[Rfam]
RNA sequence: GGCGGGUCUCCCCGCAUUGCAUCGCGGUUCACCUGGUCAGGUCCGGAAGGAAGCAGCCAAAGCCGCAUCGUGCAAGUGCCGGGGGUCAGGCUCGCCACC
Numbered sequence: 001g002g003c004g005g006g007u008c009u010c011c012c013c014g015c016a017u018u019g020c021a022u023c024g025c026g027g028u029u030c031a032c033c034u035g036g037u038c039a040g041g042u043c044c045g046g047a048a049g050g051a052a053g054c055a056g057c058c059a060a061a062g063c064c065g066c067a068u069c070g071u072g073c074a075a076g077u078g079c080c081g082g083g084g085g086u087c088a089g090g091c092u093c094g095c096c097a098c099c
Stems, first nucleotide, its partner, number of pairs: 004093005009085006015076001017075006024066006034059004042051003